[Rfam]
Rfam assigns this 178-nucleotide RNA sequence from Oryza sativa to the family "MIR807 microRNA precursor family".
RNA sequence: AACCACACUAUCAAUGAAUGGAUUCACCCGCGAGAUGACAUGGCUGUUUCACAUAGGACGAGGACGUGUGAUCCUAUUACCAGCCAUCGCACGAAAUUAAUAGGAUAUGCCACGUCAUCAUCCUAGAUGUAACAACCACGUCAUCACACGGGUAAAUCCAUUCAUCGAUACUGUGGUU
Numbered sequence: 001a002a003c004c005a006c007a008c009u010a011u012c013a014a015u016g017a018a019u020g021g022a023u024u025c026a027c028c029c030g031c032g033a034g035a036u037g038a039c040a041u042g043g044c045u046g047u048u049u050c051a052c053a054u055a056g057g058a059c060g061a062g063g064a065c066g067u068g069u070g071a072u073c074c075u076a077u078u079a080c081c082a083g084c085c086a087u088c089g090c091a092c093g094a095a096a097u098u099a100a101u102a103g104g105a106u107a108u109g110c111c112a113c114g115u116c117a118u119c120a121u122c123c124u125a126g127a128u129g130u131a132a133c134a135a136c137c138a139c140g141u142c143a144u145c146a147c148a149c150g151g152g153u154a155a156a157u158c159c160a161u162u163c164a165u166c167g168a169u170a171c172u173g174u175g176g177u178u
Base pairs, nucleotide, nucleotide: 001178002177003176004175005174006173007172009170010169011168012167014165015164017162018161019160021158022157023156024155026153027152028151030149032147035144036143037142038141039140041138042137043136045134046133047132048131051128054125055124057122058121063116064115065114071106072105073104074103075102076101077100078099079098086097087096
The literature on the family includes a 2006 paper in FEBS Lett by Luo et al., "Rice embryogenic calli express a unique set of microRNAs, suggesting regulatory roles of microRNAs in plant post-embryogenic development". The organism belongs to Oryza sativa, within Eukaryota.